This 86-nucleotide RNA sequence from Cannabis sativa belongs to the Rfam family "Small nucleolar RNA Z159/U59". The family is grouped with related families in Rfam's "SNORD59 clan". For this family Rfam cites "The high diversity of snoRNAs in plants: identification and comparative study of 120 snoRNA genes from Oryza sativa" (Chen et al., Nucleic Acids Res, 2003). Pairs were carried over by alignment from the consensus structure, which was predicted with PFOLD.

RNA sequence: GCCUCUGAGGAUGAUCAAACUAAUAACUUUCGUUCUUCUGAAAUAAACCCUUGUGGAAAAAUAUUGGAGACCUGAACUGAAGAGGC
Numbered sequence: 001g002c003c004u005c006u007g008a009g010g011a012u013g014a015u016c017a018a019a020c021u022a023a024u025a026a027c028u029u030u031c032g033u034u035c036u037u038c039u040g041a042a043a044u045a046a047a048c049c050c051u052u053g054u055g056g057a058a059a060a061a062u063a064u065u066g067g068a069g070a071c072c073u074g075a076a077c078u079g080a081a082g083a084g085g086c
Base pairs, nucleotide, nucleotide: 003084004083005082006081